RNA sequence: AAUGGAAGCAUGACAAAUCAGAUUUUUCCUUCUGAUUUUCAGAUUUUUCCUCUUGAAAAAACUCAAAUCCAACUAAAAAUGCUAAAAAGUAGGAGAAAAAAUCUAAUUUAUCAUGCAUCUAUU
Numbered sequence: 001a002a003u004g005g006a007a008g009c010a011u012g013a014c015a016a017a018u019c020a021g022a023u024u025u026u027u028c029c030u031u032c033u034g035a036u037u038u039u040c041a042g043a044u045u046u047u048u049c050c051u052c053u054u055g056a057a058a059a060a061a062c063u064c065a066a067a068u069c070c071a072a073c074u075a076a077a078a079a080u081g082c083u084a085a086a087a088a089g090u091a092g093g094a095g096a097a098a099a100a101a102u103c104u105a106a107u108u109u110a111u112c113a114u115g116c117a118u119c120u121a122u123u
Stems, first nucleotide, its partner, number of pairs: 001123006008116006015109004020104008029095006036088004041083002045079004

A member of the RNA family "MIR7504 microRNA precursor family" from Gossypium armourianum, 123 nucleotides long.